[Rfam]
Nucleotides: 112
Base pairs, nucleotide, nucleotide: 001110002109003108005106006105007104011100012099013098014097015096017094018093019092020091021090022089023088024087025086026085028083029082030081033077043068045066
Number, partner (000 for none) and nucleotide at each position: 001110g002109c003108a004000u005106a006105u007104u008000u009000c010000a011100g012099g013098u014097u015096u016000u017094u018093g019092c020091g021090u022089g023088a024087a025086u026085c027000u028083a029082a030081u031000a032000a033077a034000a035000c036000c037000g038000u039000g040000a041000g042000c043068c044000a045066c046000a047000a048000a049000a050000a051000a052000u053000c054000u055000g056000g057000a058000g059000u060000g061000g062000g063000a064000g065000g066045g067000u068043g069000g070000a071000u072000u073000u074000g075000u076000u077033u078000c079000a080000u081030g082029u083028u084000a085026g086025a087024u088023u089022c090021a091020c092019g093018c094017a095000c096015a097014a098013a099012c100011u101000c102000g103000u104007a105006a106005u107000c108003u109002g110001u111000c112000u

Shown here is a 112-nucleotide sequence from Durio zibethinus, a member of the family "MIR403 microRNA precursor family". It scores 74 bits against the family's covariance model.